[Rfam]
RNA: Small nucleolar RNA SNORD11
RNA sequence: GCAUUCAAUGAUGAUUCAUUUCUGAAGUUUGCCUGAUUUCAUCUUUGAAAAGUGAAGGCAACUCUAGUCACUACCUCUUCUGAGAUGC
Numbered sequence: 001g002c003a004u005u006c007a008a009u010g011a012u013g014a015u016u017c018a019u020u021u022c023u024g025a026a027g028u029u030u031g032c033c034u035g036a037u038u039u040c041a042u043c044u045u046u047g048a049a050a051a052g053u054g055a056a057g058g059c060a061a062c063u064c065u066a067g068u069c070a071c072u073a074c075c076u077c078u079u080c081u082g083a084g085a086u087g088c
Base pairs, nucleotide, nucleotide: 001088002087003086004085